[Rfam]
RNA sequence: CCGCACGCAGAAAGUCGAGAUUGCCUGCUUCCAAAGGCACUUUCGUUGAUUACGUGUGCCAUAACAAUGCCAUAGGUAUCAUUCUUCGUCUUCUUAGUCGCGGAACAUCUAAAUAUGGCUAUAAAU
Numbered sequence: 001c002c003g004c005a006c007g008c009a010g011a012a013a014g015u016c017g018a019g020a021u022u023g024c025c026u027g028c029u030u031c032c033a034a035a036g037g038c039a040c041u042u043u044c045g046u047u048g049a050u051u052a053c054g055u056g057u058g059c060c061a062u063a064a065c066a067a068u069g070c071c072a073u074a075g076g077u078a079u080c081a082u083u084c085u086u087c088g089u090c091u092u093c094u095u096a097g098u099c100g101c102g103g104a105a106c107a108u109c110u111a112a113a114u115a116u117g118g119c120u121a122u123a124a125a126u
Base pairs, nucleotide, nucleotide: 003059004058005057006056007055008054016045017044018043019042020041022039023038024037025036069119070118071117072116073115074114077111078110082105083104084103085102087100088099090097091096

Caenorhabditis snoRNA ceN48: a 126-nucleotide RNA from Caenorhabditis japonica. It scores 140 bits against the family's covariance model. A reference for the family is Jia et al. (2007), "Systematic identification of non-coding RNA 2,2,7-trimethylguanosine cap structures in Caenorhabditis elegans", BMC Mol Biol. By type it is an H/ACA-box small nucleolar RNA. Gene Ontology terms of the family: RNA processing and nucleolus.